This 87-nucleotide RNA sequence from Malus domestica belongs to the Rfam family "mir-156 microRNA precursor family". From the family's description: This family represents the plant microRNA (miRNA) precursor mir-156. The literature on the family includes a 2002 paper in Genes Dev by Reinhart et al., "MicroRNAs in plants". Rfam 15.1 lists 1,401 matches to the family in 221 species. The base pairs follow the family's consensus structure, which was predicted with PFOLD.

RNA sequence: GUGACAGAAGAGAGUGAGCACACAUGGUAUUUUUUUGCAUGCUGGGUUCAUGCUCGAAGCUUUGCGUGCUUAAUCUCUAUCUGUCGC
Numbered sequence: 001g002u003g004a005c006a007g008a009a010g011a012g013a014g015u016g017a018g019c020a021c022a023c024a025u026g027g028u029a030u031u032u033u034u035u036u037g038c039a040u041g042c043u044g045g046g047u048u049c050a051u052g053c054u055c056g057a058a059g060c061u062u063u064g065c066g067u068g069c070u071u072a073a074u075c076u077c078u079a080u081c082u083g084u085c086g087c
Stems, first nucleotide, its partner, number of pairs: 001087008010077004015072007023064002